[Rfam]
RNA sequence: UCCCCGCUUUUCCUCCCUGAGCGGGCGCCUUAGUGUGUGACAGCAAAAAGGCUUCCCAACCCGGCCCAACUGGCCGGGUUUUUUUUGU
Numbered sequence: 001u002c003c004c005c006g007c008u009u010u011u012c013c014u015c016c017c018u019g020a021g022c023g024g025g026c027g028c029c030u031u032a033g034u035g036u037g038u039g040a041c042a043g044c045a046a047a048a049a050g051g052c053u054u055c056c057c058a059a060c061c062c063g064g065c066c067c068a069a070c071u072g073g074c075c076g077g078g079u080u081u082u083u084u085u086u087g088u
Stems, first nucleotide, its partner, number of pairs: 003025006027052005059079008
Background
The record is an 88-nucleotide sequence from Hydrogenophaga sp. RAC07, which matches "Burkholderia RNA 7 (anti-hemB)" in Rfam. The family's RNA type in Rfam is small RNA. A search with the family's covariance model found it, with a score of 64 bits. Gene Ontology terms of the family: protein binding and bacterial biofilm matrix. Rfam describes the family as follows. This RNA motif was identified by computational search in b-proteobacteria Burkholderia. Co-purified with Hfq, expression confirmed by Northern blot. Pairs were carried over by alignment from the consensus structure, which is taken from published work. Rfam 15.1 lists 479 matches to the family in 458 species. The literature on the family includes a 2007 paper in Nucleic Acids Res by Weinberg et al., "Identification of 22 candidate structured RNAs in bacteria using the CMfinder comparative genomics pipeline". The source organism's lineage runs through Bacteria, Pseudomonadati, Betaproteobacteria, Comamonadaceae and Hydrogenophaga.